[Rfam]
Background
Vertebrate telomerase RNA: a 417-nucleotide RNA from Phrynocephalus forsythii. The organism belongs to Phrynocephalus, within Eukaryota. Clan: Telomerase clan.
RNA sequence: CGGCGAGAGGCCUCCUCUUCUUCUAUUUUCUAACCCUAAUUUUCCGCGGCCGGCGGUUCCAUCAAUCUCGCUGUUUUAUUCGCUGGCUUUCAGCGCACUCAAAACUUUUUGAGGAAAACAAUAAAACGCCAGCUGGAAGCAGGGGUGGCCUUUCCUCCUACCGACGCCGCACCUCAGCCGCCGCUCCCUUCCUCUUCGGAGGCCACCUGCUUUCCCCUCUGAAGCCGCGGUCAGCGUGGCCGCUGCCGCAAAGGGUUUGUCCCUGUGGCUUCUCUGGGGCGGCGGGCCUGGCCGAAGAAGUCUAGGGAGAGGUCCCCAGCCUGAGGCGGGCGCCAGAACAAACUCGGGCGACAUUUUCCCUCGACCCCCGCGCGCUCCUGAGUAGUGGGGCGCGCGUUUGGCGUCGCCCGGACACCA
Numbered sequence: 001c002g003g004c005g006a007g008a009g010g011c012c013u014c015c016u017c018u019u020c021u022u023c024u025a026u027u028u029u030c031u032a033a034c035c036c037u038a039a040u041u042u043u044c045c046g047c048g049g050c051c052g053g054c055g056g057u058u059c060c061a062u063c064a065a066u067c068u069c070g071c072u073g074u075u076u077u078a079u080u081c082g083c084u085g086g087c088u089u090u091c092a093g094c095g096c097a098c099u100c101a102a103a104a105c106u107u108u109u110u111g112a113g114g115a116a117a118a119c120a121a122u123a124a125a126a127c128g129c130c131a132g133c134u135g136g137a138a139g140c141a142g143g144g145g146u147g148g149c150c151u152u153u154c155c156u157c158c159u160a161c162c163g164a165c166g167c168c169g170c171a172c173c174u175c176a177g178c179c180g181c182c183g184c185u186c187c188c189u190u191c192c193u194c195u196u197c198g199g200a201g202g203c204c205a206c207c208u209g210c211u212u213u214c215c216c217c218u219c220u221g222a223a224g225c226c227g228c229g230g231u232c233a234g235c236g237u238g239g240c241c242g243c244u245g246c247c248g249c250a251a252a253g254g255g256u257u258u259g260u261c262c263c264u265g266u267g268g269c270u271u272c273u274c275u276g277g278g279g280c281g282g283c284g285g286g287c288c289u290g291g292c293c294g295a296a297g298a299a300g301u302c303u304a305g306g307g308a309g310a311g312g313u314c315c316c317c318a319g320c321c322u323g324a325g326g327c328g329g330g331c332g333c334c335a336g337a338a339c340a341a342a343c344u345c346g347g348g349c350g351a352c353a354u355u356u357u358c359c360c361u362c363g364a365c366c367c368c369c370g371c372g373c374g375c376u377c378c379u380g381a382g383u384a385g386u387g388g389g390g391c392g393c394g395c396g397u398u399u400g401g402c403g404u405c406g407c408c409c410g411g412a413c414a415c416c417a
Stems, first nucleotide, its partner, number of pairs: 002157002005154008014145002017142002020139002055106004065099001069095005082133006088126003180313003184309005193298007203285002206282001227249004232245004252264004346409007354401002369396004375390004

Telomerase is a ribonucleoprotein reverse transcriptase that synthesises telomeric DNA. Telomerase RNAs differ greatly in sequence and structure between vertebrates, ciliates and yeasts, but they share a 5' pseudoknot structure close to the template sequence.